[Rfam]
RNA sequence: GGUUUUAACCCAGUUAACUAAGGUUAGCAUUAAUUUCGACCUUUCGAAAGAUUGUGUUGAAUAACAAUAAUUUUUGGAAUUUUUGGAAAUAUUUUCAGGGUGACAGUGGAGGCAAU
Numbered sequence: 001g002g003u004u005u006u007a008a009c010c011c012a013g014u015u016a017a018c019u020a021a022g023g024u025u026a027g028c029a030u031u032a033a034u035u036u037c038g039a040c041c042u043u044u045c046g047a048a049a050g051a052u053u054g055u056g057u058u059g060a061a062u063a064a065c066a067a068u069a070a071u072u073u074u075u076g077g078a079a080u081u082u083u084u085g086g087a088a089a090u091a092u093u094u095u096c097a098g099g100g101u102g103a104c105a106g107u108g109g110a111g112g113c114a115a116u
Stems, first nucleotide, its partner, number of pairs: 007035002013028002016025003037059004041054001044051002093112004098107001100104001
RNA: SL2 RNA
Organism: Caenorhabditis elegans